[Rfam]
RNA sequence: AUGAUUUAAACUUAUGAGUAAGGAGAAAAAUUGUUUGGGGAGAUGCCCAAAUCUUCACUGCUAAUGUAAGAUGAAUUUUUGAAUAGGUAAAAUUUGCCCUAAGGUGACCCACCUACUUUCUGGGAUGACUGGGAGUCAUGAUCUGCCUG
Numbered sequence: 001a002u003g004a005u006u007u008a009a010a011c012u013u014a015u016g017a018g019u020a021a022g023g024a025g026a027a028a029a030a031u032u033g034u035u036u037g038g039g040g041a042g043a044u045g046c047c048c049a050a051a052u053c054u055u056c057a058c059u060g061c062u063a064a065u066g067u068a069a070g071a072u073g074a075a076u077u078u079u080u081g082a083a084u085a086g087g088u089a090a091a092a093u094u095u096g097c098c099c100u101a102a103g104g105u106g107a108c109c110c111a112c113c114u115a116c117u118u119u120c121u122g123g124g125a126u127g128a129c130u131g132g133g134a135g136u137c138a139u140g141a142u143c144u145g146c147c148u149g
Stems, first nucleotide, its partner, number of pairs: 005022004033052007054070002057067002084149005091144001092142003099133002102130002105127002108124004
The family of this 149-nucleotide RNA from Crocuta crocuta is "U12 minor spliceosomal RNA". Rfam classes the family as a spliceosomal small nuclear RNA. Lineage of the source: Eukaryota > Eumetazoa > Amniota > Boreoeutheria > Crocuta. Clan: U2 clan. The pairing is the family consensus, mapped onto this sequence.